Rfam assigns this 78-nucleotide sequence from Thermocatellispora tengchongensis to the family "ZMP/ZTP riboswitch aptamer (pfl RNA motif)". A search with the family's covariance model found it, with a score of 40 bits. The base pairs follow the family's consensus structure, which is taken from published work.
RNA sequence: UGGACGCGACUGGCGGCACGAGGAUGGCGGCAACCAUCGGGGAGCUUGUCGCGGGAGUCGCCCGCCUGGGCUCCCGCC
Numbered sequence: 001u002g003g004a005c006g007c008g009a010c011u012g013g014c015g016g017c018a019c020g021a022g023g024a025u026g027g028c029g030g031c032a033a034c035c036a037u038c039g040g041g042g043a044g045c046u047u048g049u050c051g052c053g054g055g056a057g058u059c060g061c062c063c064g065c066c067u068g069g070g071c072u073c074c075c076g077c078c
Stems, first nucleotide, its partner, number of pairs: 002049001004047001006045002010041002012066005024037004055073005
Dot-bracket structure: .[.[.[[..[[(((((.......((((......))))..]]..]].].].....[[[[[..)))))..]]]]].....